Rfam assigns this 104-nucleotide RNA sequence from Paenibacillus xerothermodurans to the family "TPP riboswitch aptamer (THI element)". It scores 71 bits against the family's covariance model.

[Rfam]
RNA sequence: UGUGAACACUAGGGGUGCUUGCACAAAGCUGAGAGAGACAUGCUGUCUCAACCCUCUCACCUGAUCUAGGUAAUGCUAGCGAAGGGAAGUGAUGCGUGCCGGUA
Dot-bracket structure: ......((((((((..((((.....))))......(((((...)))))...))))....(((...((((......))))...)))..)))).............